Overview:
A member of the RNA family "FMN riboswitch aptamer (RFN element)" from [Eubacterium] siraeum, 121 nucleotides long.
[Rfam]
RNA sequence: AAUCUGUUUCAGGGCGGAGUGAAAUUCUCCACCGGUGGUAAAGUCCACGAGCGCAAAGUAUUUGUGCCGAUUCGGUGAAAUUCCGAAACCGACGGUAUAGUCCGGAUGAAAGAAUCAGAAA
Numbered sequence: 001a002a003u004c005u006g007u008u009u010c011a012g013g014g015c016g017g018a019g020u021g022a023a024a025u026u027c028u029c030c031a032c033c034g035g036u037g038g039u040a041a042a043g044u045c046c047a048c049g050a051g052c053g054c055a056a057a058g059u060a061u062u063u064g065u066g067c068c069g070a071u072u073c074g075g076u077g078a079a080a081u082u083c084c085g086a087a088a089c090c091g092a093c094g095g096u097a098u099a100g101u102c103c104g105g106a107u108g109a110a111a112g113a114a115u116c117a118g119a120a121a
Base pairs, nucleotide, nucleotide: 003119004118005117006116008114009113010112017029018028019027031101032100033091034090035048036047037046038045043089044088051067052066071087072086073085074084075083093104094103095102
Background:
A reference for the family is Winkler et al. (2002), "An mRNA structure that controls gene expression by binding FMN", Proc Natl Acad Sci U S A. NCBI's taxonomy places the organism under Bacteria, Bacillati, Bacillota, Eubacteriales, [Eubacterium] siraeum.